MIR2617 microRNA precursor family: a 90-nucleotide RNA from Medicago truncatula. The base pairs follow the family's consensus structure, which was predicted with RNAalifold. Rfam links the family to the GO terms miRNA-mediated post-transcriptional gene silencing and RISC complex. The match comes from Rfam's covariance-model search (58 bits).
[Rfam]
RNA sequence: AUGUAGUGUGACAUGCCCGUUUGGGAUUUACUCUGAUGUGUGCUUAAUUAUUAUUUAAUUACUUUUUGGGUAACAGGGUGUUACAGUGAG
Numbered sequence: 001a002u003g004u005a006g007u008g009u010g011a012c013a014u015g016c017c018c019g020u021u022u023g024g025g026a027u028u029u030a031c032u033c034u035g036a037u038g039u040g041u042g043c044u045u046a047a048u049u050a051u052u053a054u055u056u057a058a059u060u061a062c063u064u065u066u067u068g069g070g071u072a073a074c075a076g077g078g079u080g081u082u083a084c085a086g087u088g089a090g
Base pairs, nucleotide, nucleotide: 002090004088005087007085008084009083010082011081012080013079014078016077017076019074020073021072